[Rfam]
RNA: SAM riboswitch aptamer (S box leader)
Organism: Firmicutes bacterium ASF500
RNA sequence: GCCUUAUCAAGAGUGGUGGAGGGAACGGCCCUAUGAAGCCCGGCAACCUGCGCAGACGCGCAAGGUGCUAAAUCCGGCGGUAGUGUAUCGAAAGAUGAGGG
Numbered sequence: 001g002c003c004u005u006a007u008c009a010a011g012a013g014u015g016g017u018g019g020a021g022g023g024a025a026c027g028g029c030c031c032u033a034u035g036a037a038g039c040c041c042g043g044c045a046a047c048c049u050g051c052g053c054a055g056a057c058g059c060g061c062a063a064g065g066u067g068c069u070a071a072a073u074c075c076g077g078c079g080g081u082a083g084u085g086u087a088u089c090g091a092a093a094g095a096u097g098a099g100g101g
Base pairs, nucleotide, nucleotide: 002100003099004098005097006096007095008094013041015040016039017038021031022030023029026076027075028074042069043068044067045066047065048064049062050061051060052059073093078090079089080088081087082086